[Rfam]
The record is a 260-nucleotide RNA from Alphavirus semliki, which matches "Togavirus 5' plus strand cis-regulatory element" in Rfam.
The base pairs follow the family's consensus structure, which was predicted with PFOLD.
Rfam's curators write: This family represents a Togavirus virus 5' plus strand cis-regulatory element which is thought to be essential for both plus and minus strand RNA synthesis.Genus Alphaviruse belongs to the Togaviridae family. Alpha viruses contain secondary structural motifs in the 5' UTR that allow them to avoid detection by IFIT1.
The match comes from Rfam's covariance-model search (160 bits).
RNA sequence: AGCUCCUGCCACCUCGGCUACGCGAGAGAUUAACCACCCACGAUGGCCGCCAAAGUGCAUGUUGAUAUUGAGGCUGACAGCCCAUUCAUCAAGUCUUUGCAGAAGGCAUUUCCGUCGUUCGAGGUGGAGUCAUUGCAGGUCACACCAAAUGACCAUGCAAAUGCCAGAGCAUUUUCGCACCUGGCUACCAAAUUGAUCGAGCAGGAGACUGACAAAGACACACUCAUCUUGGAUAUCGGCAGUGCGCCUUCCAGGAGAAU
Numbered sequence: 001a002g003c004u005c006c007u008g009c010c011a012c013c014u015c016g017g018c019u020a021c022g023c024g025a026g027a028g029a030u031u032a033a034c035c036a037c038c039c040a041c042g043a044u045g046g047c048c049g050c051c052a053a054a055g056u057g058c059a060u061g062u063u064g065a066u067a068u069u070g071a072g073g074c075u076g077a078c079a080g081c082c083c084a085u086u087c088a089u090c091a092a093g094u095c096u097u098u099g100c101a102g103a104a105g106g107c108a109u110u111u112c113c114g115u116c117g118u119u120c121g122a123g124g125u126g127g128a129g130u131c132a133u134u135g136c137a138g139g140u141c142a143c144a145c146c147a148a149a150u151g152a153c154c155a156u157g158c159a160a161a162u163g164c165c166a167g168a169g170c171a172u173u174u175u176c177g178c179a180c181c182u183g184g185c186u187a188c189c190a191a192a193u194u195g196a197u198c199g200a201g202c203a204g205g206a207g208a209c210u211g212a213c214a215a216a217g218a219c220a221c222a223c224u225c226a227u228c229u230u231g232g233a234u235a236u237c238g239g240c241a242g243u244g245c246g247c248c249u250u251c252c253a254g255g256a257g258a259a260u
Stems, first nucleotide, its partner, number of pairs: 034127005039121001044114003052110002079098002088094001134159004138154005163185005169178002195228003199224001